[Rfam]
Source information:
Shown here is a 138-nucleotide sequence from Piliocolobus tephrosceles, a member of the family "U4 spliceosomal RNA". Rfam's curators write: U4 small nuclear RNA (U4 snRNA) is a component of the major U2-dependent spliceosome. Gene Ontology terms of the family: U4 snRNP and spliceosomal tri-snRNP complex assembly. On this family, see Zwieb, Nucleic Acids Res 1997: "The uRNA database".
RNA sequence: AGCUUUGGGCAGUGGGAUAUCAUAGUCAAUGAGGCUUAUUCAAGGUGUUAUAGUUGCUAAUUGAAAACUUUACCAGUACCCACCAAGAUGACUUGAAAUAUAAUUGGCAUUGGCAGUUUUUGACAGUCUCUGCAGAGA
Numbered sequence: 001a002g003c004u005u006u007g008g009g010c011a012g013u014g015g016g017a018u019a020u021c022a023u024a025g026u027c028a029a030u031g032a033g034g035c036u037u038a039u040u041c042a043a044g045g046u047g048u049u050a051u052a053g054u055u056g057c058u059a060a061u062u063g064a065a066a067a068c069u070u071u072a073c074c075a076g077u078a079c080c081c082a083c084c085a086a087g088a089u090g091a092c093u094u095g096a097a098a099u100a101u102a103a104u105u106g107g108c109a110u111u112g113g114c115a116g117u118u119u120u121u122g123a124c125a126g127u128c129u130c131u132g133c134a135g136a137g138a
Base pairs, nucleotide, nucleotide: 019051020050022048023047025046026045027044033041034040083113084112085110087108089106090105091104093102127138128137129136130135